[Rfam]
Notes:
Rfam assigns this 57-nucleotide sequence from Ziziphus jujuba to the family "Plastid-ndhJ 3UTR RNA". Rfam's curators write: Plastid ndhJ is a non-coding RNA (ncRNA) present in plastids. The family has 50 seed sequences and 869 matches in Rfam 15.1.
RNA sequence: UGCAAAACUACGUACCGUGAACAUCACUUAGAUGGGUUCGAGAAAGUAACAACAUAA
Numbered sequence: 001u002g003c004a005a006a007a008c009u010a011c012g013u014a015c016c017g018u019g020a021a022c023a024u025c026a027c028u029u030a031g032a033u034g035g036g037u038u039c040g041a042g043a044a045a046g047u048a049a050c051a052a053c054a055u056a057a
Base pairs, nucleotide, nucleotide: 019037022034023033024032025031

The family's RNA type in Rfam is cis-regulatory element.